[Rfam]
Rfam assigns this 217-nucleotide RNA sequence to the family "RAGATH-7 RNA".
RNA sequence: AUUAAUUAUUAUUUAUCCUUAAUUUAUAUGCACAGUAAAUUGUUGAUAUCUAAUAGUUAAUAAUCCACACGUGGUAAGAGGUCAUAGUUAGGUUCACUGUGAUGUGCAACUCUUAUAAUGAGCAACCAAUCCUAAGCAAGUAGGGAGAAAUACUCUUAACCAUAAGUAGUGUUAACAUGGUGCUUGACAGUAUAAUACUAACUGACAAUAAGUAUUA
Number, nucleotide and partner (000 for none) at each position: 001a061002u060003u059004a058005a057006u056007u055008a054009u053010u052011a051012u000013u000014u048015a047016u046017c000018c000019u000020u000021a000022a040023u039024u038025u037026a036027u000028a000029u000030g000031c000032a000033c000034a000035g000036u026037a025038a024039a023040u022041u000042g000043u000044u000045g000046a016047u015048a014049u000050c000051u011052a010053a009054u008055a007056g006057u005058u004059a003060a002061u001062a000063a000064u000065c000066c000067a000068c000069a000070c000071g000072u000073g000074g000075u000076a000077a113078g112079a111080g110081g000082u102083c101084a100085u099086a098087g097088u000089u000090a000091g000092g000093u000094u000095c000096a000097c087098u086099g085100u084101g083102a082103u000104g000105u000106g000107c000108a000109a000110c080111u079112c078113u077114u000115a000116u000117a000118a000119u000120g000121a000122g000123c000124a000125a000126c000127c000128a000129a000130u146131c145132c144133u143134a000135a000136g000137c186138a185139a184140g183141u182142a000143g133144g132145g131146a130147g000148a000149a000150a000151u000152a000153c000154u000155c000156u000157u000158a000159a181160c180161c179162a178163u177164a000165a000166g000167u000168a000169g000170u000171g000172u000173u000174a000175a000176c000177a163178u162179g161180g160181u159182g141183c140184u139185u138186g137187a000188c000189a000190g000191u000192a000193u217194a216195a215196u214197a213198c212199u211200a000201a000202c000203u000204g000205a000206c000207a000208a000209u000210a000211a199212g198213u197214a196215u195216u194217a193
Background:
On this family, see Weinberg et al., Nat Chem Biol 2015: "New classes of self-cleaving ribozymes revealed by comparative genomics analysis". The family's RNA type in Rfam is small RNA.